[Rfam]
RNA sequence: UGAAAAAUCCCAUCAAGGGAGUAGUUCCCCAACCAGGAGCAACUUUCCCAUAUUCCGAAUUG
Numbered sequence: 001u002g003a004a005a006a007a008u009c010c011c012a013u014c015a016a017g018g019g020a021g022u023a024g025u026u027c028c029c030c031a032a033c034c035a036g037g038a039g040c041a042a043c044u045u046u047c048c049c050a051u052a053u054u055c056c057g058a059a060u061u062g
Stems, first nucleotide, its partner, number of pairs: 018046005024040005
Dot-bracket structure: .................(((((.(((((.......))))).)))))................
Description
Shown here is a 62-nucleotide RNA from Adiantum capillus-veneris, a member of the family "Plastid-psbN 5UTR RNA". About the family: Plastid psbN is a non-coding RNA (ncRNA) recognised in plastids. It was reported as a conserved 11 stem-loop in the prime untranslated region (5UTR) of psbN genes. It has been reported that the motif is retained in a subset of mature transcripts in barley, which can suggests a possible role in transcript alternative 5 prime processing. The match comes from Rfam's covariance-model search (68 bits). Taxonomically the source falls in Adiantum (Eukaryota, Embryophyta, Euphyllophyta, Polypodiales). On this family, see Richter et al., Plant Commun 2023: "Retrograde signaling in plants: A critical review focusing on the GUN pathway and beyond".